[Rfam]
RNA sequence: GUCCGAUGCGGUCACGGCUUCAUCGGCGAGUCCUUGUUAUACUUCAAGGGAGGGGCAAUCCUUCACUGUGGAAACGGUGUAAACACAUGAACAAUG
Numbered sequence: 001g002u003c004c005g006a007u008g009c010g011g012u013c014a015c016g017g018c019u020u021c022a023u024c025g026g027c028g029a030g031u032c033c034u035u036g037u038u039a040u041a042c043u044u045c046a047a048g049g050g051a052g053g054g055g056c057a058a059u060c061c062u063u064c065a066c067u068g069u070g071g072a073a074a075c076g077g078u079g080u081a082a083a084c085a086c087a088u089g090a091a092c093a094a095u096g
Stems, first nucleotide, its partner, number of pairs: 003026006010019003064079006

RT-9 RNA: a 96-nucleotide RNA sequence from Syntrophobotulus glycolicus.